Shown here is a 65-nucleotide RNA sequence from Pinus densata, a member of the family "MIR3712 microRNA precursor family". NCBI's taxonomy places the organism under Eukaryota, Streptophyta, Spermatophyta, Conifers I, Pinus subgen. Pinus. The sequence is in the family's curated seed alignment.

RNA sequence: GAGAUGUGAUCAAGAUCAGACUCCCAAAUCCAACAGCAUUUGAGGUCUUUGCUCGAUUAAUAUCA
Numbered sequence: 001g002a003g004a005u006g007u008g009a010u011c012a013a014g015a016u017c018a019g020a021c022u023c024c025c026a027a028a029u030c031c032a033a034c035a036g037c038a039u040u041u042g043a044g045g046u047c048u049u050u051g052c053u054c055g056a057u058u059a060a061u062a063u064c065a
Stems, first nucleotide, its partner, number of pairs: 003064005008058004013053002018048005025042005